[Rfam]
RNA sequence: AUUGAAGACAUCGUUGAGUGCAGCCUUGAUGAACCCAAAAGCCCAAAACGAACGUUCUAAUUCAAAAGAGGUUAUAAAACUUUCAACAGCGAUGCACUUAAUGAUGUCUUUG
Numbered sequence: 001a002u003u004g005a006a007g008a009c010a011u012c013g014u015u016g017a018g019u020g021c022a023g024c025c026u027u028g029a030u031g032a033a034c035c036c037a038a039a040a041g042c043c044c045a046a047a048a049c050g051a052a053c054g055u056u057c058u059a060a061u062u063c064a065a066a067a068g069a070g071g072u073u074a075u076a077a078a079a080c081u082u083u084c085a086a087c088a089g090c091g092a093u094g095c096a097c098u099u100a101a102u103g104a105u106g107u108c109u110u111u112g
Stems, first nucleotide, its partner, number of pairs: 006109006013102010024091001026089003030085003
RNA: MIR397 microRNA precursor family